[Rfam]
RNA: Small nucleolar RNA SNORA65
Organism: Crocodylus porosus
RNA sequence: CCUGCCACUGCCUGUCUUGUAAUGAAGUGGCUGGUACAAUCCAGUAGUGAGCUGAUAAAAACAUACCAGCUUAGGAAACAGGAUUAUUCUUUCUGUGGGUAACUCUGUGCCAAAGUCUGGAGACAGAU
Numbered sequence: 001c002c003u004g005c006c007a008c009u010g011c012c013u014g015u016c017u018u019g020u021a022a023u024g025a026a027g028u029g030g031c032u033g034g035u036a037c038a039a040u041c042c043a044g045u046a047g048u049g050a051g052c053u054g055a056u057a058a059a060a061a062c063a064u065a066c067c068a069g070c071u072u073a074g075g076a077a078a079c080a081g082g083a084u085u086a087u088u089c090u091u092u093c094u095g096u097g098g099g100u101a102a103c104u105c106u107g108u109g110c111c112a113a114a115g116u117c118u119g120g121a122g123a124c125a126g127a128u
Base pairs, nucleotide, nucleotide: 005047007045008044009043010042016034017033019031020029021028066120067119068118069116070115071114072113074111075110079107080106081105082104084102087099088098089097